[Rfam]
RNA: c-di-GMP-I-GGC riboswitch aptamer
RNA sequence: CAUGAUAAAGCCAAACUUGUCGAGAGGCAAGGACGGAAAGCCAACGGGCCUUAUAAUGAGGCGGCCGAGGUUGCCAAAG
Numbered sequence: 001c002a003u004g005a006u007a008a009a010g011c012c013a014a015a016c017u018u019g020u021c022g023a024g025a026g027g028c029a030a031g032g033a034c035g036g037a038a039a040g041c042c043a044a045c046g047g048g049c050c051u052u053a054u055a056a057u058g059a060g061g062c063g064g065c066c067g068a069g070g071u072u073g074c075c076a077a078a079g
Stems, first nucleotide, its partner, number of pairs: 001079001003076002011036002016031006034064001039072004045067003048062003